Small nucleolar RNA SNORA3/SNORA45 family: a 125-nucleotide sequence from Jaculus jaculus.
Rfam links the family to the GO terms RNA processing and nucleolus.
About the family: The members of this family belong to the H/ACA class of snoRNAs which are thought to guide the sites of modification of uridines to pseudouridines. This family includes mouse snoMBI-28 and human homologues ACA3 (SNORA3) and ACA3-2 (SNORA45). Both ACA3 and ACA3-2 share the same host gene. MBI-28, ACA3 and ACA3-2 are all predicted to guide the pseudouridylation of residues in 28S rRNA.
A search with the family's covariance model found it, with a score of 103 bits.
Rfam 15.1 lists 2,080 matches to the family in 639 species.
Lineage of the source: Eukaryota > Metazoa > Craniata > Amniota > Jaculus.
For this family Rfam cites "RNomics: an experimental approach that identifies 201 candidates for novel, small, non-messenger RNAs in mouse" (Huttenhofer et al., EMBO J, 2001).
[Rfam]
RNA sequence: CACUACAGUCACAUCCUGACACGAUGCUUGUCCUGGUGUGCCAGAGUUCUCCAAGAGGAUCUGCUGGUCUUGAUUCACUGGUGGGGCAGUCAGCGCCCCUCUUAGUGCCCAGAUCAGAAACAUGU
Numbered sequence: 001c002a003c004u005a006c007a008g009u010c011a012c013a014u015c016c017u018g019a020c021a022c023g024a025u026g027c028u029u030g031u032c033c034u035g036g037u038g039u040g041c042c043a044g045a046g047u048u049c050u051c052c053a054a055g056a057g058g059a060u061c062u063g064c065u066g067g068u069c070u071u072g073a074u075u076c077a078c079u080g081g082u083g084g085g086g087c088a089g090u091c092a093g094c095g096c097c098c099c100u101c102u103u104a105g106u107g108c109c110c111a112g113a114u115c116a117g118a119a120a121c122a123u124g125u
Stems, first nucleotide, its partner, number of pairs: 002047003008041001010040006018032004064117007072109001076107006083099005